RNA: Purine riboswitch aptamer
RNA sequence: AAUUAAUUAAAUAAUUGUACUCAUAUAAAGACAGGAAUAUGGCUUGUAAAGUUUCUACCGAAUUACCGUAAAUAAUUCGACUAUGAGUAAGCUAACGGUUAAA
Numbered sequence: 001a002a003u004u005a006a007u008u009a010a011a012u013a014a015u016u017g018u019a020c021u022c023a024u025a026u027a028a029a030g031a032c033a034g035g036a037a038u039a040u041g042g043c044u045u046g047u048a049a050a051g052u053u054u055c056u057a058c059c060g061a062a063u064u065a066c067c068g069u070a071a072a073u074a075a076u077u078c079g080a081c082u083a084u085g086a087g088u089a090a091g092c093u094a095a096c097g098g099u100u101a102a103a
Stems, first nucleotide, its partner, number of pairs: 018089008031047005059079007